Rfam assigns this 52-nucleotide RNA from Aureimonas sp. Leaf460 to the family "nhaA-I RNA". The family's RNA type in Rfam is riboswitch. Rfam describes the family as follows. Acidobacteria, Alphaproteobacteria, Betaproteobacteria and Gammaproteobacteria, Verrucomicrobia, cand. division NC10. The base pairs follow the family's consensus structure, which is taken from published work.
RNA sequence: GGGUGCCCGCGCGGAAAGCAGGGCAGGUUGAACGUUGGUCGGGCCGCCAGCG
Number, nucleotide and partner (000 for none) at each position: 001g000002g000003g000004u000005g024006c023007c022008c021009g000010c000011g000012c000013g000014g000015a000016a000017a000018g000019c000020a000021g008022g007023g006024c005025a000026g000027g000028u000029u000030g000031a000032a000033c052034g051035u050036u049037g048038g047039u046040c000041g000042g000043g000044c000045c000046g039047c038048c037049a036050g035051c034052g033